The family of this 105-nucleotide RNA from Ethanoligenens harbinense is "Guanidine-I riboswitch aptamer".

[Rfam]
RNA sequence: AUAUCUGUUUUCUAGGGUUCCGUGGAAGAAGACUUCCAGUCUGGUCCGAGAGAAAACGCACAUCGCGCAGGUGGUGUGUCACGGAGGGAGAAAAGCCCGGGAGGA
Numbered sequence: 001a002u003a004u005c006u007g008u009u010u011u012c013u014a015g016g017g018u019u020c021c022g023u024g025g026a027a028g029a030a031g032a033c034u035u036c037c038a039g040u041c042u043g044g045u046c047c048g049a050g051a052g053a054a055a056a057c058g059c060a061c062a063u064c065g066c067g068c069a070g071g072u073g074g075u076g077u078g079u080c081a082c083g084g085a086g087g088g089a090g091a092a093a094a095g096c097c098c099g100g101g102a103g104g105a
Stems, first nucleotide, its partner, number of pairs: 007057006015047002020044002022041001023038006059078007080100001082103001086098003
Description: A search with the family's covariance model found it, with a score of 89 bits. A reference for the family is Battaglia et al. (2017), "Structural basis for guanidine sensing by the ykkC family of riboswitches", RNA.